[Rfam]
RNA sequence: AACGGAGUAGGCUAGGAGCGUUAAGUGCUGACGGAACGGAAUGUGAACGUCACCCGAAAACCGAUAUUGGUUGCGAUUUCUUUGCCGCAUUCGCCGCA
Numbered sequence: 001a002a003c004g005g006a007g008u009a010g011g012c013u014a015g016g017a018g019c020g021u022u023a024a025g026u027g028c029u030g031a032c033g034g035a036a037c038g039g040a041a042u043g044u045g046a047a048c049g050u051c052a053c054c055c056g057a058a059a060a061c062c063g064a065u066a067u068u069g070g071u072u073g074c075g076a077u078u079u080c081u082u083u084g085c086c087g088c089a090u091u092c093g094c095c096g097c098a
Base pairs, nucleotide, nucleotide: 003096004095005094010086011085012084014082015080016079017078018077019075020074021073025055029052030051031050032049033048039092040091041090042089043088059072060071061070062069
Notes: Shown here is a 98-nucleotide sequence from Loigolactobacillus backii, a member of the family "THF (Tetrahydrofolate) riboswitch aptamer". A search with the family's covariance model found it, with a score of 58 bits. The family's consensus secondary structure is taken from published work. Its family is annotated with tetrahydrofolate metabolic process in the Gene Ontology. Tetrahydrofolate (THF) riboswitch was first reported for Ames et al. as an RNA motif in 5' untranslated (5'-UTR)regions of folate transport and biosynthesis genes in Firmicutes genomes.